[Rfam]
RNA sequence: GCCCAAUUUCGCACGUGCCUGUGGCCGUGUGUCGAUCGGUAGGUAGCCGGACAAGAGGCCGGCCAGCCGCCUGAGGUCAGCGAGCUCCUUCUCCAAGAGAGAAGAGUAAGUAGCCUCAAGUCUUCUGAUCGGCAGCCGGAGGCGAAACCGGCGCACUCUGCUCUCAGCAGGGGACGCGGCUUAAAGCAACGACGGAGCGGGCUUCU
Dot-bracket structure: ((((....(((....(((....(((((((((((....))).......(.(.(.........).).)((.(((((((.....................................................................................))))))..).))))))))))....))).)))......))))....
Rfam assigns this 206-nucleotide RNA sequence from Pseudolabrys taiwanensis to the family "Alphaproteobacterial sRNA ar45". By type it is a small RNA. A search with the family's covariance model found it, with a score of 53 bits.